[Rfam]
RNA sequence: UGACGGGGGCCCGCACAAGCGGUGGAGCAUGUGGUUUAAUUCGACGCAACGCGAAGAACCUUACCAGGGCUUGACAUCCCACGAACCUGCCUGAAAGGGCGGGGUGCCCGCAAGGGAGCGUGGAGACAGGUGGUGCAUGGCUGUCGUCAGCUCGUGUCGUGAGAUGUUGGGUUAAGUCCCGCAACGAGCGCAACCCUCACCCCUGGUUGCCACCGGAUAAAGCCGAGCACUCGAGGGGAACUGCCAGCGUCAAGCUGGAGGAAGGCGGGGAUGACGUCAAGUCAUCAUGCCCCUUACGCCCUGGGCUACACACGUGCUACAAUGGCCGGUACAAAGGGACGCGAGACCGCGAGGUGGAGCUAAUCCCAAAAAACCGGUCUAAGUUCAGAUUGCAGUCUGCAACUCGACUGCAUGAAGGAGGAAUCGCUAGUAAUCGCGCAUCAGCACGGCGCGGUGAAUACGUUCCCGGGCCUUGUACACACCGCCCGUCACACCACGAAAGCUGUCUGUACUCGAAGUCGCUGAGCUAACCCGCAAGGGGGGCAGGCGCCGAAGGUAUGGUCAGUGAUUGGGGUGAAGUCGUAACAAGG
Dot-bracket structure: (((((.(((((((.((..((((((.((((((((((....((((........))))........(((((((......(((((((..(((((((....))))))).(.((......)).)))))).))..((.((((..((((((.((...(((((((((....)))..((((......))))..)))))).....((((.(((((.(...(...(((......))).)....).)))))..((.(((((.....))))).)).....))))....)).).)))...))))))))....)))))))...)).)))))))).)...(((((((.....(((..((...(((....)))...))....))).....)))))))......(....(((((((........)))))))....).....))))).....(((((((.........)))))))......))...)))))))))).))..(.(..((...((((.(((..((((.(((((((....(.((((..(((..((......)).))).)))).)...))))))).))))..))).))))....))...)..).